[Rfam]
Nucleotides: 077
Base pairs, nucleotide, nucleotide: 013046014045016043017042018041021077022076023075024074025073026072027071028040029039030038050067051066052065053064054063055062056061
Number, partner (000 for none) and nucleotide at each position: 001000a002000a003000u004000a005000a006000a007000c008000c009000u010000c011000a012000g013046g014045g015000a016043g017042u018041c019000a020000u021077u022076g023075u024074a025073g026072a027071a028040g029039c030038g031000u032000g033000c034000u035000c036000g037000u038030c039029g040028c041018g042017a043016c044000c045014c046013c047000u048000g049000c050067u051066a052065g053064c054063c055062c056061u057000u058000u059000u060000c061056a062055g063054g064053g065052c066051u067050g068000c069000a070000g071027u072026u073025c074024u075023a076022c077021a